Rfam assigns this 56-nucleotide RNA sequence from Salmo salar to the family "U7 small nuclear RNA". Animal histone pre-mRNAs are spliced by a different mechanism than nuclear pre-mRNAs and self-splicing introns. This processing involves the U7 snRNP, which contains only one RNA species: U7. The 5' end of U7 RNA is thought to base-pair to a conserved spacer element downstream of the cleavage site in histone pre-mRNA. This family contains a number of annotated U7 pseudogenes.
RNA sequence: GAAAAUUUGCUUUUUUAGUAUUUCUCCAGUAGGUUUCCUUAAGGAGGAAGACCUUC
Numbered sequence: 001g002a003a004a005a006u007u008u009g010c011u012u013u014u015u016u017a018g019u020a021u022u023u024c025u026c027c028a029g030u031a032g033g034u035u036u037c038c039u040u041a042a043g044g045a046g047g048a049a050g051a052c053c054u055u056c
Base pairs, nucleotide, nucleotide: 032053033052034051035049036048037047038046039045